[Rfam]
RNA sequence: GGCUGACUAUCAGCAGUUCUUCACUGGCAAGCUUUAUGUUCCUGUUUAGCAGCUAAAGCUGCCAGCUGAAGAACUGUUGGGGCCAGC
Numbered sequence: 001g002g003c004u005g006a007c008u009a010u011c012a013g014c015a016g017u018u019c020u021u022c023a024c025u026g027g028c029a030a031g032c033u034u035u036a037u038g039u040u041c042c043u044g045u046u047u048a049g050c051a052g053c054u055a056a057a058g059c060u061g062c063c064a065g066c067u068g069a070a071g072a073a074c075u076g077u078u079g080g081g082g083c084c085a086g087c
Stems, first nucleotide, its partner, number of pairs: 005084001007082001010080003017073006026063003030060007
The family of this 87-nucleotide RNA sequence from Scleropages formosus is "mir-22 microRNA precursor family".
The family has 48 seed sequences and 884 matches in Rfam 15.1.
NCBI's taxonomy places the organism under Eukaryota, Opisthokonta, Eumetazoa, Euteleostomi, Scleropages.